Rfam assigns this 299-nucleotide sequence from Alphacoronavirus porci to the family "Alphacoronavirus 3'UTR". Rfam links the family to the GO term viral RNA genome replication. Rfam classes the family as a cis-regulatory element. Taxonomically the source falls in Alphacoronavirus porci (Viruses, Riboviria, Pisuviricota, Pedacovirus). The 3' UTR of alphacoronaviruses consists of two small hairpins (PK-SL2) which can form an alternate conformation (PK-SL1) where the loop region of the second hairpin interacts with the stem of the first hairpin. PK-SL2 has been confirmed in HCoV-229E and HCoV-NL63 by in vitro structure probing experiments. Downstream of this pseudoknot lies the hypervariable region (HVR), which is supported by many covarying basepairs in alphacoronaviruses. On this family, see Madhugiri et al., Virus Res 2014: "RNA structure analysis of alphacoronavirus terminal genome regions".

RNA sequence: CAGGGUAGUGCCAUUACACUGUUAUUACUGAGUGUUUUUCUAGCGACUUGGCUGCUGGGCUAUGGCUUUGCCCUCUAACCAGCGGUCUUGGUCUUGCACACAACGGUAAGCCAGUGGUAAUGUCAGUGCAAGAAGGAUAUUACCAUAGCACUGUCACGAGGGGAACGCAGUACCUUUUCAUCUAAACCUUUGCACGAGUAAUUAAAGAUCCGCUUGACGAGCCUAUAUGGAAGAGCGUGCCAGGUAUUUGACUUAAGGACUGUUAGUAACUGAAGACCUGACGGUGUUGAUAUGGAUAC
Numbered sequence: 001c002a003g004g005g006u007a008g009u010g011c012c013a014u015u016a017c018a019c020u021g022u023u024a025u026u027a028c029u030g031a032g033u034g035u036u037u038u039u040c041u042a043g044c045g046a047c048u049u050g051g052c053u054g055c056u057g058g059g060c061u062a063u064g065g066c067u068u069u070g071c072c073c074u075c076u077a078a079c080c081a082g083c084g085g086u087c088u089u090g091g092u093c094u095u096g097c098a099c100a101c102a103a104c105g106g107u108a109a110g111c112c113a114g115u116g117g118u119a120a121u122g123u124c125a126g127u128g129c130a131a132g133a134a135g136g137a138u139a140u141u142a143c144c145a146u147a148g149c150a151c152u153g154u155c156a157c158g159a160g161g162g163g164a165a166c167g168c169a170g171u172a173c174c175u176u177u178u179c180a181u182c183u184a185a186a187c188c189u190u191u192g193c194a195c196g197a198g199u200a201a202u203u204a205a206a207g208a209u210c211c212g213c214u215u216g217a218c219g220a221g222c223c224u225a226u227a228u229g230g231a232a233g234a235g236c237g238u239g240c241c242a243g244g245u246a247u248u249u250g251a252c253u254u255a256a257g258g259a260c261u262g263u264u265a266g267u268a269a270c271u272g273a274a275g276a277c278c279u280g281a282c283g284g285u286g287u288u289g290a291u292a293u294g295g296a297u298a299c
Stems, first nucleotide, its partner, number of pairs: 093110005114146011150285006160271002167263004178251003186245004192240005213221002222230002